[Rfam]
RNA: JUMPstart RNA
Organism: Shigella boydii
RNA sequence: CAGUGUAUUGGUGGCUAAAAAGCCAGGGGCGGUAGCGUG
Dot-bracket structure: .......(((((.........))))).............